The record is an 81-nucleotide RNA sequence, which matches "mir-16 microRNA precursor family" in Rfam. The sequence is in the family's curated seed alignment. A reference for the family is Calin et al. (2002), "Frequent deletions and down-regulation of micro- RNA genes miR15 and miR16 at 13q14 in chronic lymphocytic leukemia", Proc Natl Acad Sci U S A. The family is grouped with related families in Rfam's "mir-15 clan".
[Rfam]
RNA sequence: UCCUCGCUUUAGCAGCACGUAAAUAUUGGUGUGUUAUAGUCAAGGCCAACCCCAAUAUUAUGUGUGCUGCUUCAGUAAGGC
Numbered sequence: 001u002c003c004u005c006g007c008u009u010u011a012g013c014a015g016c017a018c019g020u021a022a023a024u025a026u027u028g029g030u031g032u033g034u035u036a037u038a039g040u041c042a043a044g045g046c047c048a049a050c051c052c053c054a055a056u057a058u059u060a061u062g063u064g065u066g067c068u069g070c071u072u073c074a075g076u077a078a079g080g081c
Stems, first nucleotide, its partner, number of pairs: 002080002006076002010074001011071008022059008